[Rfam]
RNA sequence: CCUCUCUCGGCUCUGUGUAGUUGCACUUGGCUUCACCCGUGUAACUUUCAUAAUGGGGAGAGAAAGAAAAGAUCUCAGGACCUCAGGUGGGCCUUACUGUGGCCUCUCUUUCCUUGAGGGGAGCAAUAGGC
Numbered sequence: 001c002c003u004c005u006c007u008c009g010g011c012u013c014u015g016u017g018u019a020g021u022u023g024c025a026c027u028u029g030g031c032u033u034c035a036c037c038c039g040u041g042u043a044a045c046u047u048u049c050a051u052a053a054u055g056g057g058g059a060g061a062g063a064a065a066g067a068a069a070a071g072a073u074c075u076c077a078g079g080a081c082c083u084c085a086g087g088u089g090g091g092c093c094u095u096a097c098u099g100u101g102g103c104c105u106c107u108c109u110u111u112c113c114u115u116g117a118g119g120g121g122a123g124c125a126a127u128a129g130g131c
Stems, first nucleotide, its partner, number of pairs: 002066002005063004011058005019046008074121002077115003085109003089105005
Shown here is a 131-nucleotide RNA from Sapajus apella, a member of the family "Small nucleolar RNA SNORA64/SNORA10 family". It is annotated as an H/ACA-box small nucleolar RNA. The match comes from Rfam's covariance-model search (85 bits). The family has 9 seed sequences and 703 matches in Rfam 15.1. From the family's description: This family belongs to the H/ACA class of small nucleolar RNAs (snoRNAs) which act as guides in the the modification of uridines to pseudouridines. Its Rfam clan is "SNORA64 clan".